[Rfam]
RNA: HNH endonuclease-associated RNA and ORF (HEARO) RNA
RNA sequence: GUCAACUACCCCCACUUAACGCCUAGCGGCGUUUGAAGUGGGGGCUUGGGGAAACGUGUAAGCCAGGCUUAUACGCCCUCAGGCCCGGUUGAUUAUGCCUUAGUGGUCGGGAUGUUUACCGAAAGGGGACAGCGAACCACUACGUUAAGCCGGAAUAGAUAGGCACCCUGGGAUCCUCCACACGUUCCAGGCUCUGCGGCGGGUGUUUAAACAUCUCUGAGGGUAGGAGAAGUGAUGUCCGCUUAAACCCGGCAUUAACAUUGGCAAUGUGGACCGAC
Numbered sequence: 001g002u003c004a005a006c007u008a009c010c011c012c013c014a015c016u017u018a019a020c021g022c023c024u025a026g027c028g029g030c031g032u033u034u035g036a037a038g039u040g041g042g043g044g045c046u047u048g049g050g051g052a053a054a055c056g057u058g059u060a061a062g063c064c065a066g067g068c069u070u071a072u073a074c075g076c077c078c079u080c081a082g083g084c085c086c087g088g089u090u091g092a093u094u095a096u097g098c099c100u101u102a103g104u105g106g107u108c109g110g111g112a113u114g115u116u117u118a119c120c121g122a123a124a125g126g127g128g129a130c131a132g133c134g135a136a137c138c139a140c141u142a143c144g145u146u147a148a149g150c151c152g153g154a155a156u157a158g159a160u161a162g163g164c165a166c167c168c169u170g171g172g173a174u175c176c177u178c179c180a181c182a183c184g185u186u187c188c189a190g191g192c193u194c195u196g197c198g199g200c201g202g203g204u205g206u207u208u209a210a211a212c213a214u215c216u217c218u219g220a221g222g223g224u225a226g227g228a229g230a231a232g233u234g235a236u237g238u239c240c241g242c243u244u245a246a247a248c249c250c251g252g253c254a255u256u257a258a259c260a261u262u263g264g265c266a267a268u269g270u271g272g273a274c275c276g277a278c
Base pairs, nucleotide, nucleotide: 001093002092003091004090005089006088007087010044011043012041013040015038016037047065048064097265098264099263102141103140104139105138106137144259145258146257147256148255149253150252151251152250153249163197164196167191168190169189170188171187172186173185174184177273178272179271180270181269182268199242200241201240202239203238204237205236206235207234211233212232214230215229216228217227218225219224